[Rfam]
RNA: Bacteroidales-1 6S-Bacteroidales RNA suggested
RNA sequence: GGUCGUUCGGUUAGAUCGGGUUACUCUUCAUAAUAAAUCGUGAAACCGAGAAGACUUCUCUUGCUUAUGGCGGGCCAUAUAAAUCGCAUUUGGCGACUAAGCUGUAAAGCCGGUGGAUUACAAAGGCGGAGAGCUCUCAAACUAGUGAAUAGUUCAGAGUUUCAUCACAUCAUCGGCGACCCCUUCUCU
Number, nucleotide and partner (000 for none) at each position: 001g000002g000003u000004c000005g000006u000007u000008c000009g000010g000011u000012u000013a000014g000015a000016u000017c000018g000019g000020g000021u000022u000023a000024c000025u000026c000027u000028u000029c000030a000031u000032a000033a000034u000035a000036a000037a000038u000039c000040g000041u000042g000043a000044a000045a000046c000047c000048g000049a000050g000051a000052a000053g000054a000055c133056u132057u000058c131059u130060c000061u129062u128063g127064c126065u125066u000067a000068u122069g121070g000071c000072g000073g000074g000075c116076c115077a114078u113079a000080u000081a000082a000083a000084u096085c095086g094087c000088a000089u000090u000091u000092g000093g000094c086095g085096a084097c000098u000099a000100a000101g110102c109103u108104g000105u000106a000107a000108a103109g102110c101111c000112g000113g078114u077115g076116g075117a000118u000119u000120a000121c069122a068123a000124a000125g065126g064127c063128g062129g061130a059131g058132a056133g055134c000135u000136c000137u000138c000139a000140a000141a000142c000143u000144a000145g000146u000147g000148a000149a000150u000151a000152g000153u000154u000155c000156a000157g000158a000159g000160u000161u000162u000163c000164a000165u000166c000167a000168c000169a000170u000171c000172a000173u000174c000175g000176g000177c000178g000179a000180c000181c000182c000183c000184u000185u000186c000187u000188c000189u000